Record summary: Rfam assigns this 73-nucleotide sequence from Ailuropoda melanoleuca to the family "Small nucleolar RNA SNORD2". By type it is a C/D-box small nucleolar RNA. A reference for the family is Zhou et al. (2004), "Identification of a novel box C/D snoRNA from mouse nucleolar cDNA library", Gene. The match comes from Rfam's covariance-model search (71 bits). The base pairs follow the family's consensus structure, which was predicted with WAR. The organism belongs to Ailuropoda, within Eukaryota.
RNA sequence: CAGUGAAAUGAUGGCAAUCACCUUUCAGGACUGACUGACCUAAAAUGAAGAGAAUACUCAUUGCUCAUCACUU
Numbered sequence: 001c002a003g004u005g006a007a008a009u010g011a012u013g014g015c016a017a018u019c020a021c022c023u024u025u026c027a028g029g030a031c032u033g034a035c036u037g038a039c040c041u042a043a044a045a046u047g048a049a050g051a052g053a054a055u056a057c058u059c060a061u062u063g064c065u066c067a068u069c070a071c072u073u
Stems, first nucleotide, its partner, number of pairs: 002072005
Dot-bracket structure: .(((((.............................................................))))).